Record summary:
This 102-nucleotide sequence from Anaerosporomusa subterranea belongs to the Rfam family "Purine riboswitch aptamer".
RNA sequence: ACAUACAAACUGAAUACUGCUCGUACAGUUCUGAGGAUAUGGCUCAGACGUUGUUGCCAGGUAGCCGUAAAUUGCCUGACUACGGGUGAAAGUGCGUCUAGG
Numbered sequence: 001a002c003a004u005a006c007a008a009a010c011u012g013a014a015u016a017c018u019g020c021u022c023g024u025a026c027a028g029u030u031c032u033g034a035g036g037a038u039a040u041g042g043c044u045c046a047g048a049c050g051u052u053g054u055u056g057c058c059a060g061g062u063a064g065c066c067g068u069a070a071a072u073u074g075c076c077u078g079a080c081u082a083c084g085g086g087u088g089a090a091a092g093u094g095c096g097u098c099u100a101g102g
Stems, first nucleotide, its partner, number of pairs: 018088008030048006058078007

Pairs were carried over by alignment from the consensus structure, which is taken from published work. Taxonomically the source falls in Anaerosporomusa (Bacteria, Bacillati, Bacillota, Acetonemataceae). It scores 62 bits against the family's covariance model.